[Rfam]
RNA sequence: CCUUCCAAGGAGCGUUGCAGCGCGGUUUCCCGACCGCGUCAGGCUUGGAAGAUUCUGCAGUAUCGCAACGGCGCUCACGAACU
Numbered sequence: 001c002c003u004u005c006c007a008a009g010g011a012g013c014g015u016u017g018c019a020g021c022g023c024g025g026u027u028u029c030c031c032g033a034c035c036g037c038g039u040c041a042g043g044c045u046u047g048g049a050a051g052a053u054u055c056u057g058c059a060g061u062a063u064c065g066c067a068a069c070g071g072c073g074c075u076c077a078c079g080a081a082c083u
Base pairs, nucleotide, nucleotide: 002051003050004049005048006047007046008045021038022037023036024035025034026033

SAH (S-adenosyl-L-homocysteine) riboswitch aptamer: an 83-nucleotide sequence from Oxalobacteraceae bacterium OM1.
Taxonomically the source falls in Oxalobacteraceae (Bacteria, Pseudomonadati, Pseudomonadota, Burkholderiales).
A search with the family's covariance model found it, with a score of 63 bits.